[Rfam]
RNA sequence: AAUCCGGUCGCUACGGCGGCCGGUAUAACAACAAAAUGAAAUUCCUCUUUGACAGGCCAGUAGCGAUACUGGCCUCUUUUUU
Dot-bracket structure: ......(((((....))))).................................(((((((((....))))))))).......
Overview:
The record is an 82-nucleotide sequence from Shimwellia blattae, which matches "sroB RNA" in Rfam. The family's consensus secondary structure was predicted with LocARNA. NCBI's taxonomy places the organism under Bacteria, Pseudomonadota, Gammaproteobacteria, Shimwellia, Shimwellia blattae. By type it is a small RNA.